[Rfam]
RNA: mir-9195 microRNA precursor family
Organism: Myotis lucifugus
RNA sequence: AGAGGCCCUCCGCAGCCAGGGUGGAACACUUGCCUCGUCGCCGUGGCAACAAAGCAAGCAUUCCACCAGGCUGCUUACGCUGCCCGC
Numbered sequence: 001a002g003a004g005g006c007c008c009u010c011c012g013c014a015g016c017c018a019g020g021g022u023g024g025a026a027c028a029c030u031u032g033c034c035u036c037g038u039c040g041c042c043g044u045g046g047c048a049a050c051a052a053a054g055c056a057a058g059c060a061u062u063c064c065a066c067c068a069g070g071c072u073g074c075u076u077a078c079g080c081u082g083c084c085c086g087c
Base pairs, nucleotide, nucleotide: 004084005083006082012074013073014072015071016070017069020067021066022065023064024063025062026061029058030057031056032055033054037050038049040047041046